RNA sequence: AGCAAUUAGUUUGGUAAUCUCAAGGGUGGUCAGCAUUACCCCGUAAUGGAAGGGGGCGAUGCCUAUGAUGACAACGUUUCAAGCUUUAACGCUAAUGAUCGCAUUUGGCUGCUUGAUAGUAUCUGUCAUAUCUCUAAUAAACAAAAAGUAAUCCACCCUUGAGACCGUCAGCAACUUUAGGUGGAUUACUACUUAUUACGCUGAUACCCUUCUUGUAGGGACCAACGAUUGCUUCGACCGUGAGUGUUACCAGCACCCACG
Dot-bracket structure: ((((.((..(..((((..((((((((.(((....(((.((((..........)))).))).........((..(((.......(............)..........(((.......)))...)))..).)...................)))..))))))))......((.................))..............)))).((.......))...)..)).)))).....((((.(((((...))))).))))

The record is a 261-nucleotide RNA sequence from Caldibacillus thermoamylovorans, which matches "BsrG" in Rfam. The literature on the family includes a 2008 paper in Gene by Saito et al., "Novel small RNA-encoding genes in the intergenic regions of Bacillus subtilis". Rfam links the family to the GO terms autolysis and toxin activity. Rfam 15.1 lists 614 matches to the family in 343 species. The base pairs follow the family's consensus structure, which was predicted with WAR. NCBI's taxonomy places the organism under Bacteria, Bacillati, Bacillota, Bacilli, Caldibacillus. About the family: bsrE, bsrG and bsrH pair through intermolecular interactions with antisense sRNAs. They form type I toxin/antitoxin system that includes an mRNA encoding for a short, toxic peptide (bsrE, bsrG and bsrH) and an antitoxin that is comprised of an antisense RNA. bsrG encodes a 39-amino-acid toxin, and the 180 nucleotide antisense sRNA called SR4 acts as the antitoxin (they overlap by 123 nucleotides). SR4 interaction with the 3'UTR of bsrG RNA promotes bsrG degradation and inhibits its translation.